[Rfam]
RNA sequence: CGCGCCUGCAAUACCCGUUACAACGAAAUAUGUGUUUCUGUAACUGGCUUUGCCCUCUUGAUUGAGGGCUUUUUUAUGACGG
Numbered sequence: 001c002g003c004g005c006c007u008g009c010a011a012u013a014c015c016c017g018u019u020a021c022a023a024c025g026a027a028a029u030a031u032g033u034g035u036u037u038c039u040g041u042a043a044c045u046g047g048c049u050u051u052g053c054c055c056u057c058u059u060g061a062u063u064g065a066g067g068g069c070u071u072u073u074u075u076a077u078g079a080c081g082g
Stems, first nucleotide, its partner, number of pairs: 001017002004014001052069006

Description
This 82-nucleotide RNA from Salmonella enterica belongs to the Rfam family "Salmonella enterica sRNA STnc280". The source organism's lineage runs through Bacteria, Gammaproteobacteria, Salmonella, Salmonella enterica and Salmonella enterica subsp. arizonae.